[Rfam]
RNA: Molybdenum/Tungsten riboswitch aptamer (Moco RNA motif)
RNA sequence: AAAAUUUAAUACCUCCGAGCCAUAUAUCCUAAAGUUAUAGCUAUGGAUACACGGCCAUUAGGGUGCGUUUGGAAACGAUCGUGCCUCCCAGUGUGGAAAGGAGGGUUGACAAUCAACAA
Numbered sequence: 001a002a003a004a005u006u007u008a009a010u011a012c013c014u015c016c017g018a019g020c021c022a023u024a025u026a027u028c029c030u031a032a033a034g035u036u037a038u039a040g041c042u043a044u045g046g047a048u049a050c051a052c053g054g055c056c057a058u059u060a061g062g063g064u065g066c067g068u069u070u071g072g073a074a075a076c077g078a079u080c081g082u083g084c085c086u087c088c089c090a091g092u093g094u095g096g097a098a099a100g101g102a103g104g105g106u107u108g109a110c111a112a113u114c115a116a117c118a119a
Stems, first nucleotide, its partner, number of pairs: 003113001012104005019055003023051001025049005033042003061086007069078003087096002
Dot-bracket structure: ..(........(((((..(((.(.(((((...(((....)))..))))).).))).....(((((((.(((....))).)))))))((......))...)))))........)......